[Rfam]
RNA sequence: GAAACCGUGAGGUCAGCCUGAAAGAAGCGCGUAGCAAAUGCAAGACCGUAGGAACAUGAACAAGCAGUGAGGCAGGGUGUGGGCGAUAAGUGUGCUAGGAAACACGAAAUCCAACUGUUACCGAAAGACGCACCAAGUAGAGCUUGACGGCACGGGCAGAAAGUUUUAGCAC
Numbered sequence: 001g002a003a004a005c006c007g008u009g010a011g012g013u014c015a016g017c018c019u020g021a022a023a024g025a026a027g028c029g030c031g032u033a034g035c036a037a038a039u040g041c042a043a044g045a046c047c048g049u050a051g052g053a054a055c056a057u058g059a060a061c062a063a064g065c066a067g068u069g070a071g072g073c074a075g076g077g078u079g080u081g082g083g084c085g086a087u088a089a090g091u092g093u094g095c096u097a098g099g100a101a102a103c104a105c106g107a108a109a110u111c112c113a114a115c116u117g118u119u120a121c122c123g124a125a126a127g128a129c130g131c132a133c134c135a136a137g138u139a140g141a142g143c144u145u146g147a148c149g150g151c152a153c154g155g156g157c158a159g160a161a162a163g164u165u166u167u168a169g170c171a172c
Base pairs, nucleotide, nucleotide: 004013005012006011027172029170030169034164035163039158040157041156044153046150047149048148049147061146062145063144064143065142072138073137076134077133078132079131080130081129085111086110087109090105091104092103093102
RNA: Group II catalytic intron D1-D4-3